[Rfam]
RNA sequence: CACAUGCUCCUUAGAUCCAUCUUUGCGAGUGUCUUUGUGCUGAGUUCUGCUGGAUAACUUCGGUUUCUAGCAGUUCCAGUCAGAGAUGCUCGGCAACUUCUUGGUUGUACAGUCGAAGAUGCUUGAGUCAUUGGCAUGUGAGAGCGAUACAACUGCGUGUUAGCUUGCUGUUCCGAUAGAAGUGGCUGUAACGUACCGGUCACCUGUCGCUAUCGGGACGUGGCUGGUAUGCAGACAUG
Numbered sequence: 001c002a003c004a005u006g007c008u009c010c011u012u013a014g015a016u017c018c019a020u021c022u023u024u025g026c027g028a029g030u031g032u033c034u035u036u037g038u039g040c041u042g043a044g045u046u047c048u049g050c051u052g053g054a055u056a057a058c059u060u061c062g063g064u065u066u067c068u069a070g071c072a073g074u075u076c077c078a079g080u081c082a083g084a085g086a087u088g089c090u091c092g093g094c095a096a097c098u099u100c101u102u103g104g105u106u107g108u109a110c111a112g113u114c115g116a117a118g119a120u121g122c123u124u125g126a127g128u129c130a131u132u133g134g135c136a137u138g139u140g141a142g143a144g145c146g147a148u149a150c151a152a153c154u155g156c157g158u159g160u161u162a163g164c165u166u167g168c169u170g171u172u173c174c175g176a177u178a179g180a181a182g183u184g185g186c187u188g189u190a191a192c193g194u195a196c197c198g199g200u201c202a203c204c205u206g207u208c209g210c211u212a213u214c215g216g217g218a219c220g221u222g223g224c225u226g227g228u229a230u231g232c233a234g235a236c237a238u239g
Base pairs, nucleotide, nucleotide: 002139003138004137005136006135007134008133010127011126012125013124014123018121019120020119021118022117023116024115025114026092027091028090029089030088031087034084035083036082037081039080040079041078042077044076047073048072049071050070053067056065057064058063093108094107095106096105097104098103153234154233155232156231157230160227162225163224164223165222172217173216174215175214176213177212178211179210183209184208185207188200189199